[Rfam]
RNA sequence: AAAAUGAAGGGGUUGUAGGGGAAGGAUUCCCCUGCCUCUUUAAAGGAGGGUGUUCAGCAACUUUAGUUGCGUCGAAGGGAAC
Numbered sequence: 001a002a003a004a005u006g007a008a009g010g011g012g013u014u015g016u017a018g019g020g021g022a023a024g025g026a027u028u029c030c031c032c033u034g035c036c037u038c039u040u041u042a043a044a045g046g047a048g049g050g051u052g053u054u055c056a057g058c059a060a061c062u063u064u065a066g067u068u069g070c071g072u073c074g075a076a077g078g079g080a081a082c
Stems, first nucleotide, its partner, number of pairs: 015035008057070005